RNA sequence: GAGAUACCCUUAUGGGGCAGGACUUACUUCAGUGGAGCUUUGGUGCUUACUGAGUCUGCCCCUUGAGUAUGUCACU
Dot-bracket structure: (.((((..((((.((((((.(((.....(((((((.((....))..)))))))))))))))).))))..)))).).
A member of the RNA family "mir-9229 microRNA precursor family" from Myotis davidii, 76 nucleotides long. The match comes from Rfam's covariance-model search (82 bits). Its family is annotated with RISC complex and miRNA-mediated post-transcriptional gene silencing in the Gene Ontology. The family has 7 seed sequences and 27,225 matches in Rfam 15.1. The base pairs follow the family's consensus structure, which was predicted with RNAalifold. Lineage of the source: Eukaryota > Metazoa > Euteleostomi > Mammalia > Myotis.